Rfam assigns this 197-nucleotide sequence to the family "Manganese Mn2+ riboswitch aptamer (yybP-ykoY)". The base pairs follow the family's consensus structure. On this family, see Argaman et al., Curr Biol 2001: "Novel small RNA-encoding genes in the intergenic regions of Escherichia coli".

RNA sequence: CCAUACUUCAUUGGGGAGUAGCCGCUAUUCACAGCAAAUGUGAAUAGGUGAUGGUCAACAUAAUUGUUCAACAGAACAUGGUCAUCAUAGCUUAAACGUCUCAUCGUUCCUGAGUUGGCAAGACCUUUGAUUUACCACUCUGCAAUCAUUUUAUGAUAUUUGGCUAGCAGGAGGGGUAGGUCAUAGGCAUUUAUGCU
Numbered sequence: 001c002c003a004u005a006c007u008u009c010a011u012u013g014g015g016g017a018g019u020a021g022c023c024g025c026u027a028u029u030c031a032c033a034g035c036a037a038a039u040g041u042g043a044a045u046a047g048g049u050g051a052u053g054g055u056c057a058a059c060a061u062a063a064u065u066g067u068u069c070a071a072c073a074g075a076a077c078a079u080g081g082u083c084a085u086c087a088u089a090g091c092u093u094a095a096a097c098g099u100c101u102c103a104u105c106g107u108u109c110c111u112g113a114g115u116u117g118g119c120a121a122g123a124c125c126u127u128u129g130a131u132u133u134a135c136c137a138c139u140c141u142g143c144a145a146u147c148a149u150u151u152u153a154u155g156a157u158a159u160u161u162g163g164c165u166a167g168c169a170g171g172a173g174g175g176g177u178a179g180g181u182c183a184u185a186g187g188c189a190u191u192u193a194u195g196c197u
Base pairs, nucleotide, nucleotide: 026046027045028044048088049087050086051085052084053083054082055081056080057079065078066077067076068075069074

Overview: About the family: This RNA was originally discovered in E. coli during a large scale screen and was named SraF. The family was later found to exist upstream of related families of protein genes in many bacteria, including the the yybP and ykoK genes in B. subtilis. The specific functions of these proteins are unknown, but this structured RNA element may be involved in their genetic regulation as a riboswitch.